[Rfam]
The family of this 113-nucleotide RNA from Proteus vulgaris is "Salmonella enterica Typhi npcRNA 44". The literature on the family includes a 2010 paper in Nucleic Acids Res by Chinni et al., "Experimental identification and characterization of 97 novel npcRNA candidates in Salmonella enterica serovar Typhi". Rfam classes the family as a non-coding RNA gene.
RNA sequence: CUUUAACAAUCUGGAACAAGCUGAAAAAUUGAAAACAAAUCAAUAUAUCACCGAGGUAUAUUGAUGAGUCUCUCAAAAUCUCAAACUUUGAAUGUGUUUUUCGACAUCGAAGU
Dot-bracket structure: ......................((.(..((.....((...(((((((((.....))))))))).)).........)).).))....(((..(((..........)))..))).

Lineage of the source: Bacteria > Pseudomonadati > Gammaproteobacteria > Enterobacterales > Proteus.